[Rfam]
Nucleotides: 129
Base pairs, nucleotide, nucleotide: 011039012038016035019032020031021030068122069121070120071119072118073117083109084108086102087101088100089099
Number, partner (000 for none) and nucleotide at each position: 001000a002000a003000g004000c005000a006000u007000g008000u009000u010000u011039c012038c013000a014000a015000g016035g017000u018000c019032u020031g021030u022000g023000g024000c025000u026000g027000a028000u029000a030021g031020u032019g033000u034000c035016c036000a037000c038012g039011g040000u041000a042000u043000c044000u045000c046000c047000a048000a049000c050000u051000g052000c053000a054000u055000g056000c057000g058000a059000g060000a061000g062000c063000a064000a065000c066000c067000u068122g069121g070120a071119g072118a073117g074000a075000c076000u077000u078000u079000g080000a081000c082000a083109g084108c085000a086102c087101a088100g089099g090000u091000c092000a093000c094000c095000a096000g097000u098000a099089c100088c101087u102086g103000c104000a105000g106000c107000u108084g109083c110000c111000a112000c113000u114000c115000g116000a117073c118072u119071u120070u121069c122068c123000u124000a125000u126000a127000a128000a129000c